[Rfam]
RNA sequence: AAGUCCUUUAAAGACAGUCCCGUGAGGCUGAGAAGGAAACGGAUUUGCAACAGGCAUAUGUUGUAUGCCAUGCUGCACGCUAACACCACACGUUUACCCUCUUGCCUAAACAGACAAGAGGGUUUUUUGC
Numbered sequence: 001a002a003g004u005c006c007u008u009u010a011a012a013g014a015c016a017g018u019c020c021c022g023u024g025a026g027g028c029u030g031a032g033a034a035g036g037a038a039a040c041g042g043a044u045u046u047g048c049a050a051c052a053g054g055c056a057u058a059u060g061u062u063g064u065a066u067g068c069c070a071u072g073c074u075g076c077a078c079g080c081u082a083a084c085a086c087c088a089c090a091c092g093u094u095u096a097c098c099c100u101c102u103u104g105c106c107u108a109a110a111c112a113g114a115c116a117a118g119a120g121g122g123u124u125u126u127u128u129g130c
Stems, first nucleotide, its partner, number of pairs: 004037006015030005046077004051072002054068005096123009106113001
A member of the RNA family "PyrR binding site" from Mesobacillus boroniphilus, 130 nucleotides long. Rfam links the family to the GO terms pyrimidine nucleobase biosynthetic process and pyrimidine nucleobase transport. The family's RNA type in Rfam is cis-regulatory element. Rfam's curators write: This family represents the PyrR binding site and terminator structure.